[Rfam]
A member of the RNA family "Bacterial small signal recognition particle RNA" from Enterovibrio coralii, 97 nucleotides long. On this family, see Rosenblad et al., Nucleic Acids Res 2003: "SRPDB: Signal Recognition Particle Database". The family's consensus secondary structure is taken from published work.
RNA sequence: CAUAGGUUUCCUCGCAGCGUGACUGCAUGUAAUUGGUCAGAGCCGGAAGGCAGCAGCCAGCAUACAGAAAGCGGGUGCCGAGGGUUGGCUUGUGGGG
Numbered sequence: 001c002a003u004a005g006g007u008u009u010c011c012u013c014g015c016a017g018c019g020u021g022a023c024u025g026c027a028u029g030u031a032a033u034u035g036g037u038c039a040g041a042g043c044c045g046g047a048a049g050g051c052a053g054c055a056g057c058c059a060g061c062a063u064a065c066a067g068a069a070a071g072c073g074g075g076u077g078c079c080g081a082g083g084g085u086u087g088g089c090u091u092g093u094g095g096g097g
Stems, first nucleotide, its partner, number of pairs: 004091005009084006015075001018073003023067003027063003033060005042051003